A member of the RNA family "Hepatitis C virus stem-loop SL8001 RNA", 58 nucleotides long. For this family Rfam cites "The Coding Region of the HCV Genome Contains a Network of Regulatory RNA Structures" (Pirakitikulr et al., Mol Cell, 2016). It is one of the family's seed sequences. From the family's description: Even though Hepatitis C virus (HCV) SL8001 is not required for overall replication, conformational changes in this motif tune the initial rate of replication.
RNA sequence: CAUUCUAGCAAGGCCAUUAACCACAUCAACUCCGUGUGGGAGGACUUGUUAGAGGACA
Numbered sequence: 001c002a003u004u005c006u007a008g009c010a011a012g013g014c015c016a017u018u019a020a021c022c023a024c025a026u027c028a029a030c031u032c033c034g035u036g037u038g039g040g041a042g043g044a045c046u047u048g049u050u051a052g053a054g055g056a057c058a
Stems, first nucleotide, its partner, number of pairs: 004053009014043002021039006